[Rfam]
RNA sequence: GCCGAGACUAGUGUCACGUCUAGACAUUGCCAUUGUCAUAGUUGUGCUUGAGUACUCGGAAAGUAACAACUAAUCGCUGUUCACUGACUGUCACUACUUUCAGCUGUCAGUCAGUCACUGGGUUAGUAACAGAA
Numbered sequence: 001g002c003c004g005a006g007a008c009u010a011g012u013g014u015c016a017c018g019u020c021u022a023g024a025c026a027u028u029g030c031c032a033u034u035g036u037c038a039u040a041g042u043u044g045u046g047c048u049u050g051a052g053u054a055c056u057c058g059g060a061a062a063g064u065a066a067c068a069a070c071u072a073a074u075c076g077c078u079g080u081u082c083a084c085u086g087a088c089u090g091u092c093a094c095u096a097c098u099u100u101c102a103g104c105u106g107u108c109a110g111u112c113a114g115u116c117a118c119u120g121g122g123u124u125a126g127u128a129a130c131a132g133a134a
Stems, first nucleotide, its partner, number of pairs: 002059005007053003013047001015046004020041001023037004070126006077120001083115005089109002092106002094103001
Shown here is a 134-nucleotide RNA sequence from Terrapene triunguis, a member of the family "Small nucleolar RNA SNORA3/SNORA45 family". The match comes from Rfam's covariance-model search (74 bits). The organism belongs to Terrapene, within Eukaryota. Clan: SNORA3 clan. From the family's description: The members of this family belong to the H/ACA class of snoRNAs which are thought to guide the sites of modification of uridines to pseudouridines. This family includes mouse snoMBI-28 and human homologues ACA3 (SNORA3) and ACA3-2 (SNORA45). Both ACA3 and ACA3-2 share the same host gene.